[Rfam]
RNA sequence: GUACCCCCAAAGGGGUGCAAAAGAGGCGUGUGAAUAGUCCGCAUCAUUGGCCUGUACGGACGGUUCGUGAAUC
Numbered sequence: 001g002u003a004c005c006c007c008c009a010a011a012g013g014g015g016u017g018c019a020a021a022a023g024a025g026g027c028g029u030g031u032g033a034a035u036a037g038u039c040c041g042c043a044u045c046a047u048u049g050g051c052c053u054g055u056a057c058g059g060a061c062g063g064u065u066c067g068u069g070a071a072u073c
Stems, first nucleotide, its partner, number of pairs: 001018006031067005037061005043055002